[Rfam]
RNA: Betaproteobacteria-1 RNA
RNA sequence: CGCGUGACUGGUCGGACAUCAACGGCGGGUCACUGGACAGCCGGUACUGUGGGAUAGCCUUGAGAUACCGGACAGGGUGGCGAAGUUAGCGCCCUGAGGCGAACGGCUGACGGGC
Number, nucleotide and partner (000 for none) at each position: 001c036002g000003c000004g033005u032006g031007a030008c029009u028010g000011g000012u000013c000014g000015g000016a000017c000018a000019u000020c000021a000022a000023c000024g000025g050026c049027g047028g009029g008030u007031c006032a005033c004034u000035g000036g001037a000038c000039a000040g000041c071042c070043g069044g068045u067046a066047c027048u000049g026050u025051g000052g000053g000054a000055u000056a000057g100058c099059c098060u097061u000062g000063a000064g000065a000066u046067a045068c044069c043070g042071g041072a000073c096074a095075g094076g093077g092078u091079g000080g000081c000082g000083a000084a000085g111086u110087u109088a108089g107090c106091g078092c077093c076094c075095u074096g073097a060098g059099g058100c057101g000102a000103a000104c000105g000106g090107c089108u088109g087110a086111c085112g000113g000114g000115c000